Vault RNA: a 97-nucleotide RNA from Podarcis lilfordi.
Rfam classes the family as a non-coding RNA gene.
The family's consensus secondary structure is taken from published work.
It scores 49 bits against the family's covariance model.

RNA sequence: GAGCCAGCUUAGCCCAGCGGUUCCAUCAACCAACACAUUGCUUGGAUCCCACAAUCGCCUCCUGCGGUGUGAGACCUGCAGGCGCCACCUGGCUUUA
Numbered sequence: 001g002a003g004c005c006a007g008c009u010u011a012g013c014c015c016a017g018c019g020g021u022u023c024c025a026u027c028a029a030c031c032a033a034c035a036c037a038u039u040g041c042u043u044g045g046a047u048c049c050c051a052c053a054a055u056c057g058c059c060u061c062c063u064g065c066g067g068u069g070u071g072a073g074a075c076c077u078g079c080a081g082g083c084g085c086c087a088c089c090u091g092g093c094u095u096u097a
Stems, first nucleotide, its partner, number of pairs: 002094006012083003017079004026072003